[Rfam]
RNA: NiCo (Nickel/Cobalt) riboswitch aptamer
Organism: Firmicutes bacterium CAG:534
RNA sequence: ACAGUACAAACUGAGCAGGCAGCGAACCGAGGUUCAUAGCCGGGCCGGAUAAGGCAACAGAUGAAUGACAGCAUCUGUGGGACAGUA
Numbered sequence: 001a002c003a004g005u006a007c008a009a010a011c012u013g014a015g016c017a018g019g020c021a022g023c024g025a026a027c028c029g030a031g032g033u034u035c036a037u038a039g040c041c042g043g044g045c046c047g048g049a050u051a052a053g054g055c056a057a058c059a060g061a062u063g064a065a066u067g068a069c070a071g072c073a074u075c076u077g078u079g080g081g082a083c084a085g086u087a
Stems, first nucleotide, its partner, number of pairs: 010086004016081001018041003022037001024035004044055003057078006